[Rfam]
RNA sequence: CAGUGUUACAGCCCUUUUAGAAUUUGUCUAGCAGGUUUUCUGGCUUUCCAGAAAACCUCC
Numbered sequence: 001c002a003g004u005g006u007u008a009c010a011g012c013c014c015u016u017u018u019a020g021a022a023u024u025u026g027u028c029u030a031g032c033a034g035g036u037u038u039u040c041u042g043g044c045u046u047u048c049c050a051g052a053a054a055a056c057c058u059c060c
Base pairs, nucleotide, nucleotide: 034057035056036055037054038053039052040051041050042049043048